[Rfam]
RNA: TPP riboswitch aptamer (THI element)
Organism: Reinekea forsetii
RNA sequence: UCGUUCUUGCCGGGGUGCCAAGCAAUUGAAUUGCUUGGCUGAGAAAAACCCGUUGAACCUGAACCAGUUUGUACUGGCGUAGGGAGCAAAGAAGUCUUUUGU
Numbered sequence: 001u002c003g004u005u006c007u008u009g010c011c012g013g014g015g016u017g018c019c020a021a022g023c024a025a026u027u028g029a030a031u032u033g034c035u036u037g038g039c040u041g042a043g044a045a046a047a048a049c050c051c052g053u054u055g056a057a058c059c060u061g062a063a064c065c066a067g068u069u070u071g072u073a074c075u076g077g078c079g080u081a082g083g084g085a086g087c088a089a090a091g092a093a094g095u096c097u098u099u100u101g102u
Stems, first nucleotide, its partner, number of pairs: 007089004011052004016046001017039009058083004064077004